DUF1874 RNA: a 94-nucleotide RNA. The family's RNA type in Rfam is cis-regulatory element.
RNA sequence: GUUAGACCUGCAAGAAGAUGGCCAUCCAAGGUAAGAGGUGCCAAAGGCACCCGCCAUCUUCUGCCGCCGAUGGCGGCUAUGCAGGUCAGGAGGU
Number, nucleotide and partner (000 for none) at each position: 001g000002u000003u000004a000005g087006a086007c085008c084009u083010g082011c081012a080013a000014g061015a060016a059017g058018a057019u056020g055021g054022c053023c000024a000025u000026c000027c000028a000029a000030g000031g000032u000033a000034a000035g052036a000037g051038g050039u049040g048041c047042c000043a000044a000045a000046g000047g041048c040049a039050c038051c037052c035053g022054c021055c020056a019057u018058c017059u016060u015061c014062u000063g077064c076065c075066g074067c073068c000069g000070a000071u000072g000073g067074c066075g065076g064077c063078u000079a000080u012081g011082c010083a009084g008085g007086u006087c005088a000089g000090g000091a000092g000093g000094u000

About this RNA
The base pairs follow the family's consensus structure, which is taken from published work.